[Rfam]
RNA sequence: CUCUGGAAAGCAGACGAUCCGUCGUCUCACCCACGGUGCAAGCCGCCAACCGGCGGUGAAGCUCUCAGGUCGAUGACAGAG
Numbered sequence: 001c002u003c004u005g006g007a008a009a010g011c012a013g014a015c016g017a018u019c020c021g022u023c024g025u026c027u028c029a030c031c032c033a034c035g036g037u038g039c040a041a042g043c044c045g046c047c048a049a050c051c052g053g054c055g056g057u058g059a060a061g062c063u064c065u066c067a068g069g070u071c072g073a074u075g076a077c078a079g080a081g
Base pairs, nucleotide, nucleotide: 001081002080003079004078005077012027013026014025015024029070030069031068033065036064038062042057043056044055045054046053
Record summary:
Shown here is an 81-nucleotide RNA from Micromonospora echinofusca, a member of the family "Glycine riboswitch aptamer". Its family is annotated with glycine biosynthetic process in the Gene Ontology. The source organism's lineage runs through Bacteria, Actinomycetota, Actinomycetes, Micromonosporales and Micromonospora.